[Rfam]
The record is a 76-nucleotide RNA from Teichococcus cervicalis, which matches "Makes More Granules Regulator RNA (mmgR)" in Rfam.
RNA sequence: UCUUCCUGCCGUGUGACUGGCGUUUCCUCCCUAAACUCGGGCCGCACCUUCGGUGUGGCCCUUUUUUUUGUUGUAU
Numbered sequence: 001u002c003u004u005c006c007u008g009c010c011g012u013g014u015g016a017c018u019g020g021c022g023u024u025u026c027c028u029c030c031c032u033a034a035a036c037u038c039g040g041g042c043c044g045c046a047c048c049u050u051c052g053g054u055g056u057g058g059c060c061c062u063u064u065u066u067u068u069u070g071u072u073g074u075a076u
Base pairs, nucleotide, nucleotide: 008021009020010019039061040060041059042058043057044056045055046054047053
The organism belongs to Teichococcus cervicalis, within Bacteria. Rfam's curators write: SuhB later renamed mmgR (makes more granules regulator) was a putative non-coding RNA found multiple times in the Agrobacterium tumefaciens genome and related alpha-proteobacteria. The family is grouped with related families in Rfam's "suhB sRNA clan". A search with the family's covariance model found it, with a score of 54 bits. The pairing is the family consensus, mapped onto this sequence.